[Rfam]
RNA sequence: UGGCCAGUGCGGGUACUCGAAAACCGGGUUCAACCGGUAUAAGGGCCCGUAAACGCCGGGAGUAACUCUGACUCUCGAGCUAAAGGGAGUCGUUAAACCCGGCUGUAUGCGGGGAAUUCCAGAGCCCUCAACUACCUUAAAAGGUAACAAUGUUGGGGGUUAUGAGGAAGACCCGCAGGAAACCCCUGCCAACGUGGUAGCCAUGCUCACCGAAUUCUCGGACAUAAUCGACCCAGAGGAACUUCCCAACAGGCUUAGCCAGCUCAAGUGGCACAUAACAGGGUUCGUCGACGGCGACGGAAGCUUCCCGAUAAUCCUUUCACCCGACGCUGGAAAAAAAUUCGGCUGGCUAAUCCAGCCAAGGUUUGAGGUCGAGCUUCGAAGAAACGAAGACUCCGAGGUCAUGCUCAAAGUGAUAUGCAGGGCCAUGCUGAUUAGGCCAAGGAUAUUCGCAGGCGAAAACUACGUCAAACUCAUCGUUACCAAUAGGAGGAUACUGCUGGAGAAGGUGGUUCCCUUCUUCGAAAAAUAUAGACCAGCGGUCAAGUGGCUGGACUUCAAGAUAAUGAGCGAGGUUGCGCAAGACCUGCAGCAGAAGAG
Numbered sequence: 001u002g003g004c005c006a007g008u009g010c011g012g013g014u015a016c017u018c019g020a021a022a023a024c025c026g027g028g029u030u031c032a033a034c035c036g037g038u039a040u041a042a043g044g045g046c047c048c049g050u051a052a053a054c055g056c057c058g059g060g061a062g063u064a065a066c067u068c069u070g071a072c073u074c075u076c077g078a079g080c081u082a083a084a085g086g087g088a089g090u091c092g093u094u095a096a097a098c099c100c101g102g103c104u105g106u107a108u109g110c111g112g113g114g115a116a117u118u119c120c121a122g123a124g125c126c127c128u129c130a131a132c133u134a135c136c137u138u139a140a141a142a143g144g145u146a147a148c149a150a151u152g153u154u155g156g157g158g159g160u161u162a163u164g165a166g167g168a169a170g171a172c173c174c175g176c177a178g179g180a181a182a183c184c185c186c187u188g189c190c191a192a193c194g195u196g197g198u199a200g201c202c203a204u205g206c207u208c209a210c211c212g213a214a215u216u217c218u219c220g221g222a223c224a225u226a227a228u229c230g231a232c233c234c235a236g237a238g239g240a241a242c243u244u245c246c247c248a249a250c251a252g253g254c255u256u257a258g259c260c261a262g263c264u265c266a267a268g269u270g271g272c273a274c275a276u277a278a279c280a281g282g283g284u285u286c287g288u289c290g291a292c293g294g295c296g297a298c299g300g301a302a303g304c305u306u307c308c309c310g311a312u313a314a315u316c317c318u319u320u321c322a323c324c325c326g327a328c329g330c331u332g333g334a335a336a337a338a339a340a341u342u343c344g345g346c347u348g349g350c351u352a353a354u355c356c357a358g359c360c361a362a363g364g365u366u367u368g369a370g371g372u373c374g375a376g377c378u379u380c381g382a383a384g385a386a387a388c389g390a391a392g393a394c395u396c397c398g399a400g401g402u403c404a405u406g407c408u409c410a411a412a413g414u415g416a417u418a419u420g421c422a423g424g425g426c427c428a429u430g431c432u433g434a435u436u437a438g439g440c441c442a443a444g445g446a447u448a449u450u451c452g453c454a455g456g457c458g459a460a461a462a463c464u465a466c467g468u469c470a471a472a473c474u475c476a477u478c479g480u481u482a483c484c485a486a487u488a489g490g491a492g493g494a495u496a497c498u499g500c501u502g503g504a505g506a507a508g509g510u511g512g513u514u515c516c517c518u519u520c521u522u523c524g525a526a527a528a529a530u531a532u533a534g535a536c537c538a539g540c541g542g543u544c545a546a547g548u549g550g551c552u553g554g555a556c557u558u559c560a561a562g563a564u565a566a567u568g569a570g571c572g573a574g575g576u577u578g579c580g581c582a583a584g585a586c587c588u589g590c591a592g593c594a595g596a597a598g599a600g
Stems, first nucleotide, its partner, number of pairs: 002057003007054002009050005016045003023038005058076006
Dot-bracket structure: .(((..(((((((..(((....(((((......)))))....))))))))..)))))((((((.......))))))............................................................................................................................................................................................................................................................................................................................................................................................................................................................................................................................................
The record is a 600-nucleotide part of an RNA from Candidatus Caldarchaeum subterraneum, which matches "Archaeal large subunit ribosomal RNA" in Rfam. Its Rfam clan is "LSU clan". A reference for the family is Yusupov et al. (2001), "Crystal structure of the ribosome at 5.5 A resolution", Science. It scores 2451 bits against the family's covariance model. NCBI's taxonomy places the organism under Archaea, Thermoproteati, Nitrososphaerota, Candidatus Caldarchaeaceae, Candidatus Caldarchaeum. Rfam 15.1 lists 2,955 matches to the family in 1,139 species.